[Rfam]
RNA sequence: CCAGAUAACCCAUUAUCUGAGCUCAUACGGUGUGCAUUAAAAGUAAUUUUUUUGUAUAAAGCCCGUUUAAUCAGGUAAAUAAUCCUUCCAUCCUAAUUAUAUCUAUAGAUAUAAAAGGAUGGUGAGCUAUAUUACUAUGGAUAAG
Numbered sequence: 001c002c003a004g005a006u007a008a009c010c011c012a013u014u015a016u017c018u019g020a021g022c023u024c025a026u027a028c029g030g031u032g033u034g035c036a037u038u039a040a041a042a043g044u045a046a047u048u049u050u051u052u053u054g055u056a057u058a059a060a061g062c063c064c065g066u067u068u069a070a071u072c073a074g075g076u077a078a079a080u081a082a083u084c085c086u087u088c089c090a091u092c093c094u095a096a097u098u099a100u101a102u103c104u105a106u107a108g109a110u111a112u113a114a115a116a117g118g119a120u121g122g123u124g125a126g127c128u129a130u131a132u133u134a135c136u137a138u139g140g141a142u143a144a145g
Base pairs, nucleotide, nucleotide: 002019003018004017005016006015007014027066028065029064030063031058032057033056034055035054036053039050040049041048042047080099081098082097083096100114102109103108119138120137121136122135123134124133

Rfam assigns this 145-nucleotide sequence from Histoplasma capsulatum to the family "Group II catalytic intron D1-D4-7". A search with the family's covariance model found it, with a score of 44 bits. Taxonomically the source falls in Histoplasma capsulatum var. duboisii (Eukaryota, Eurotiomycetes, Eurotiomycetidae, Onygenales). Its family is annotated with Group II intron splicing in the Gene Ontology. A reference for the family is Bonen and Vogel (2001), "The ins and outs of group II introns", Trends Genet.